[Rfam]
RNA sequence: GGGGGGGGAUGGGUUCUGGUGUGCCCUCUGGUCUUCAAAACCAGCAUGAGGAGUUAGGAGCUUCUUAGGUGGGUUCGAUUCCCACACCUUCCC
Numbered sequence: 001g002g003g004g005g006g007g008g009a010u011g012g013g014u015u016c017u018g019g020u021g022u023g024c025c026c027u028c029u030g031g032u033c034u035u036c037a038a039a040a041c042c043a044g045c046a047u048g049a050g051g052a053g054u055u056a057g058g059a060g061c062u063u064c065u066u067a068g069g070u071g072g073g074u075u076c077g078a079u080u081c082c083c084a085c086a087c088c089u090u091c092c093c
Base pairs, nucleotide, nucleotide: 001092002091003090004089005088006087008085011026012025013024014023016021028044029043030042031041032040047067048066049065050064051063070084071083072082073081
Rfam assigns this 93-nucleotide RNA from Megasphaera geminata to the family "Selenocysteine transfer RNA". On this family, see Mizutani and Goto, FEBS Lett 2000: "Eukaryotic selenocysteine tRNA has the 9/4 secondary structure". Taxonomically the source falls in Megasphaera geminata (Bacteria, Bacillati, Negativicutes, Veillonellaceae).